[Rfam]
RNA sequence: UAAACCUUUAAGGUUGUCCAGAGAGGCAGGCAAGGUCAGAAAAUAACAAAGUAAUAAAACGGUGGACAGCGUCCAUUUUCUGAUACUAUACCUGCAUUCUGAUGGAUGCAGGAUUUUUGUUU
Numbered sequence: 001u002a003a004a005c006c007u008u009u010a011a012g013g014u015u016g017u018c019c020a021g022a023g024a025g026g027c028a029g030g031c032a033a034g035g036u037c038a039g040a041a042a043a044u045a046a047c048a049a050a051g052u053a054a055u056a057a058a059a060c061g062g063u064g065g066a067c068a069g070c071g072u073c074c075a076u077u078u079u080c081u082g083a084u085a086c087u088a089u090a091c092c093u094g095c096a097u098u099c100u101g102a103u104g105g106a107u108g109c110a111g112g113a114u115u116u117u118u119g120u121u122u
Base pairs, nucleotide, nucleotide: 004036005035006034007033008032014029015028016027017026018025052083054081056079057078058077059076061074062073065070088115091112092111093110094109095108096107097106098105099104
This 122-nucleotide RNA sequence from Lactococcus allomyrinae belongs to the Rfam family "PyrR binding site". Pairs were carried over by alignment from the consensus structure, which is taken from published work. On this family, see Bonner et al., Nucleic Acids Res 2001: "Molecular recognition of pyr mRNA by the Bacillus subtilis attenuation regulatory protein PyrR". NCBI's taxonomy places the organism under Bacteria, Bacillati, Bacilli, Streptococcaceae, Lactococcus.